Small nucleolar RNA SNORA25: a 128-nucleotide RNA sequence from Diceros bicornis. About the family: ACA25 is a member of the H/ACA class of snoRNA that guide the sites of modification of uridines to pseudouridines.

[Rfam]
RNA sequence: AGGUCAUUUCAAAGAGGGCAUGUGGGCUGUGAAACCAGGAGCUCUUAACUCGAUGACCAAAGAUUGAAGUUCUCCAUAGGCUGCCAUAGUCAUUCAAUAGCACCAAGGUUUUCUGAGGAGAAAAAAGA
Dot-bracket structure: .((((((......((((((.(.(.((........)).)).))))))......))))))............(((((..(((......(.(...((....))..).)......)))..))))).......